[Rfam]
RNA sequence: ACCGCACCGCACGGUGAGGUCUCCUCCCGCCCUUCUCUGACGCACUUCCCCGGCGUCAGAGCGGGCCGCGGAGGGGGACCUGGUCGGGCGGUGGAGGGCCG
Numbered sequence: 001a002c003c004g005c006a007c008c009g010c011a012c013g014g015u016g017a018g019g020u021c022u023c024c025u026c027c028c029g030c031c032c033u034u035c036u037c038u039g040a041c042g043c044a045c046u047u048c049c050c051c052g053g054c055g056u057c058a059g060a061g062c063g064g065g066c067c068g069c070g071g072a073g074g075g076g077g078a079c080c081u082g083g084u085c086g087g088g089c090g091g092u093g094g095a096g097g098g099c100c101g
Stems, first nucleotide, its partner, number of pairs: 010088001012086004018080002021077005027071004031065003035061009
RNA: mraW RNA